[Rfam]
RNA sequence: AGGCCCAAAGAGAGAGGCAAGAUCUGAUCCACAGCCUCCAUGGCAGCUGUUGAUCAGCCAUUGACUUUCUCUUUCUCUUCA
Numbered sequence: 001a002g003g004c005c006c007a008a009a010g011a012g013a014g015a016g017g018c019a020a021g022a023u024c025u026g027a028u029c030c031a032c033a034g035c036c037u038c039c040a041u042g043g044c045a046g047c048u049g050u051u052g053a054u055c056a057g058c059c060a061u062u063g064a065c066u067u068u069c070u071c072u073u074u075c076u077c078u079u080c081a
Stems, first nucleotide, its partner, number of pairs: 008073009018063003024057006032049004
RNA: mir-574 microRNA precursor family
Organism: Pipistrellus kuhlii